The family of this 75-nucleotide RNA sequence from Nocardia huaxiensis is "ASpks TB sRNA". Rfam classes the family as an antisense RNA. The literature on the family includes a 2009 paper in Mol Microbiol by Arnvig and Young, "Identification of small RNAs in Mycobacterium tuberculosis".
RNA sequence: UUUCACCGACCCCAGCCACAGCGGUUUGCCCGCCGGACGGUCCUUGCCGUAGGUGGACAGCACGGCCUGCGCCUC
Dot-bracket structure: .............((((.....))))....(((....(....((..(((....)))..))....)...)))....
Numbered sequence: 001u002u003u004c005a006c007c008g009a010c011c012c013c014a015g016c017c018a019c020a021g022c023g024g025u026u027u028g029c030c031c032g033c034c035g036g037a038c039g040g041u042c043c044u045u046g047c048c049g050u051a052g053g054u055g056g057a058c059a060g061c062a063c064g065g066c067c068u069g070c071g072c073c074u075c
Stems, first nucleotide, its partner, number of pairs: 014026004031071003038065001043060002047056003